[Rfam]
The family of this 102-nucleotide RNA from Proteiniborus sp. DW1 is "Purine riboswitch aptamer". Lineage of the source: Bacteria > Bacillati > Bacillota > Clostridia > Proteiniborus. A search with the family's covariance model found it, with a score of 88 bits.
RNA sequence: GGAAAAACAUAUAUGAAAACUCAUAUAUACCCUAGAAUAUGGCUAGGGAGUCUCUACCGGAUUACCGUAAAUUAUCCGACUAUGAGUGGAAUAUAAUAGCUA
Numbered sequence: 001g002g003a004a005a006a007a008c009a010u011a012u013a014u015g016a017a018a019a020c021u022c023a024u025a026u027a028u029a030c031c032c033u034a035g036a037a038u039a040u041g042g043c044u045a046g047g048g049a050g051u052c053u054c055u056a057c058c059g060g061a062u063u064a065c066c067g068u069a070a071a072u073u074a075u076c077c078g079a080c081u082a083u084g085a086g087u088g089g090a091a092u093a094u095a096a097u098a099g100c101u102a
Stems, first nucleotide, its partner, number of pairs: 019087007030048006058078005064072001